[Rfam]
Record summary:
A member of the RNA family "Small nucleolar RNA R44/J54/Z268 family" from Musa troglodytarum, 87 nucleotides long. The family's RNA type in Rfam is C/D-box small nucleolar RNA. Rfam links the family to the GO terms nucleolus and RNA processing. A search with the family's covariance model found it, with a score of 80 bits. Clan: SNORD74 clan.
RNA sequence: CCUGCAAGUGACGACAAGAUAGACAGGGACAUCAGAACUCUUUACAGAGAAUGAUGACUUGGUCUAUGGGAAUCUCUCUGAUGCACG
Numbered sequence: 001c002c003u004g005c006a007a008g009u010g011a012c013g014a015c016a017a018g019a020u021a022g023a024c025a026g027g028g029a030c031a032u033c034a035g036a037a038c039u040c041u042u043u044a045c046a047g048a049g050a051a052u053g054a055u056g057a058c059u060u061g062g063u064c065u066a067u068g069g070g071a072a073u074c075u076c077u078c079u080g081a082u083g084c085a086c087g
Base pairs, nucleotide, nucleotide: 003085004084005083006082